[Rfam]
RNA sequence: UAACCUCUGGUAUUUACGAAUGUUG
Numbered sequence: 001u002a003a004c005c006u007c008u009g010g011u012a013u014u015u016a017c018g019a020a021u022g023u024u025g
Stems, first nucleotide, its partner, number of pairs: 001025004008020001010017002
Dot-bracket structure: ((((...(.((....))..).))))